[Rfam]
RNA sequence: GCUUGUUUGAGUGGCGUCAGACUGUCCCUGCUUCUGGGGGAGCUUUGAUAUGUAUGGUUGGGUAAUGAUUAUAGCUUAUUGGAAUCUCUGUCCGCCUGAGGUCCAUUGUUGGUAAUUGUAUCCUAGCGUAGGCUUGUGGGUAUAAUGGCUAUUCAAGACCUGGGGAAAGCGUGAGGCUGGAAACAGAGCAACGAAAACUGGGCGCAUUGGUUCAGUCAGGGGAUAGCAGAGAUUGAUGUCUGUGGUCUUAACCUUGGUCUACAUUAUCUUUU
Numbered sequence: 001g002c003u004u005g006u007u008u009g010a011g012u013g014g015c016g017u018c019a020g021a022c023u024g025u026c027c028c029u030g031c032u033u034c035u036g037g038g039g040g041a042g043c044u045u046u047g048a049u050a051u052g053u054a055u056g057g058u059u060g061g062g063u064a065a066u067g068a069u070u071a072u073a074g075c076u077u078a079u080u081g082g083a084a085u086c087u088c089u090g091u092c093c094g095c096c097u098g099a100g101g102u103c104c105a106u107u108g109u110u111g112g113u114a115a116u117u118g119u120a121u122c123c124u125a126g127c128g129u130a131g132g133c134u135u136g137u138g139g140g141u142a143u144a145a146u147g148g149c150u151a152u153u154c155a156a157g158a159c160c161u162g163g164g165g166a167a168a169g170c171g172u173g174a175g176g177c178u179g180g181a182a183a184c185a186g187a188g189c190a191a192c193g194a195a196a197a198c199u200g201g202g203c204g205c206a207u208u209g210g211u212u213c214a215g216u217c218a219g220g221g222g223a224u225a226g227c228a229g230a231g232a233u234u235g236a237u238g239u240c241u242g243u244g245g246u247c248u249u250a251a252c253c254u255u256g257g258u259c260u261a262c263a264u265u266a267u268c269u270u271u272u
Stems, first nucleotide, its partner, number of pairs: 001043003005022006026040003047268004054255001056253007068246007077238005084233008092222002095220005101213001103210003107206003110151004115146009125134003153157001159202005170193003177186003
Metazoan signal recognition particle RNA: a 272-nucleotide RNA sequence from Smittium mucronatum. Its family is annotated with SRP-dependent cotranslational protein targeting to membrane, signal sequence recognition and signal recognition particle, endoplasmic reticulum targeting in the Gene Ontology. It is annotated as a non-coding RNA gene. Rfam 15.1 lists 383,523 matches to the family in 1,221 species. The match comes from Rfam's covariance-model search (108 bits). NCBI's taxonomy places the organism under Eukaryota, Opisthokonta, Fungi, Kickxellomycotina, Smittium. The base pairs follow the family's consensus structure, which is taken from published work. From the family's description: The signal recognition particle (SRP) is a universally conserved ribonucleoprotein. It is involved in the co-translational targeting of proteins to membranes. The eukaryotic SRP consists of a 300-nucleotide 7S RNA and six proteins: SRPs 72, 68, 54, 19, 14, and 9.